[Rfam]
RNA sequence: GAUGUGGAGUGUUAUAUCAAACAUGAGUAGAAUCUAAUAUUGAUUCAAAAGUGGACACGAAAAAAAAAGAA
Numbered sequence: 001g002a003u004g005u006g007g008a009g010u011g012u013u014a015u016a017u018c019a020a021a022c023a024u025g026a027g028u029a030g031a032a033u034c035u036a037a038u039a040u041u042g043a044u045u046c047a048a049a050a051g052u053g054g055a056c057a058c059g060a061a062a063a064a065a066a067a068a069g070a071a
Base pairs, nucleotide, nucleotide: 003067005065009058010057011056012055013054022053023052024051030046031045032044035039
Dot-bracket structure: ..(.(...(((((........(((.....(((..(...)....)))....))))))))......).)....
A member of the RNA family "RAGATH-18 RNA", 71 nucleotides long.
Rfam classes the family as a small RNA.
Rfam describes the family as follows. Actinobacteria, Firmicutes, Fusobacteria, Thermotogae (1 example).
Rfam's curators put it in the seed alignment.
Pairs were carried over by alignment from the consensus structure, which is taken from published work.